[Rfam]
Shown here is a 142-nucleotide RNA sequence from Peromyscus maniculatus, a member of the family "Small nucleolar RNA SNORA43". ACA43 is a member of the H/ACA class of snoRNA that guide the sites of modification of uridines to pseudouridines. Rfam 15.1 lists 492 matches to the family in 142 species. It scores 94 bits against the family's covariance model. The base pairs follow the family's consensus structure, which was predicted with RNAfold. Gene Ontology terms of the family: RNA processing and nucleolus.
RNA sequence: UUUGUCCUGGGUUUUUCAGCACCACAAGCACAGCGCAGCUGCUCAGCUGUGUCUGGGACAUCAGGGCCAAGAGCAAGUGGCUGGUUCUAUGCUCAGUGUUCAGAAGCCAGUGAGCACGAAGGAUGGCUGCAGCCUGACCUAG
Numbered sequence: 001u002u003u004g005u006c007c008u009g010g011g012u013u014u015u016u017c018a019g020c021a022c023c024a025c026a027a028g029c030a031c032a033g034c035g036c037a038g039c040u041g042c043u044c045a046g047c048u049g050u051g052u053c054u055g056g057g058a059c060a061u062c063a064g065g066g067c068c069a070a071g072a073g074c075a076a077g078u079g080g081c082u083g084g085u086u087c088u089a090u091g092c093u094c095a096g097u098g099u100u101c102a103g104a105a106g107c108c109a110g111u112g113a114g115c116a117c118g119a120a121g122g123a124u125g126g127c128u129g130c131a132g133c134c135u136g137a138c139c140u141a142g
Stems, first nucleotide, its partner, number of pairs: 004067007025055002079134003087126003092121002097116006